[Rfam]
RNA sequence: CUCUUAUCAAGAAAGACUGAGGGACAGGGCCCGAUGAUGUCUUAGCAACCAUGAAUAAAAGCUUGGUGCUAACUCCCUCCUGGUAACCAUAUCCAGGGAAGAUAAGAU
Numbered sequence: 001c002u003c004u005u006a007u008c009a010a011g012a013a014a015g016a017c018u019g020a021g022g023g024a025c026a027g028g029g030c031c032c033g034a035u036g037a038u039g040u041c042u043u044a045g046c047a048a049c050c051a052u053g054a055a056u057a058a059a060a061g062c063u064u065g066g067u068g069c070u071a072a073c074u075c076c077c078u079c080c081u082g083g084u085a086a087c088c089a090u091a092u093c094c095a096g097g098g099a100a101g102a103u104a105a106g107a108u
Stems, first nucleotide, its partner, number of pairs: 002107007013043005021032003026078004044070004049066002053062001074100001079097005
RNA: SAM riboswitch aptamer (S box leader)
Organism: Pontibacter sp. SGAir0037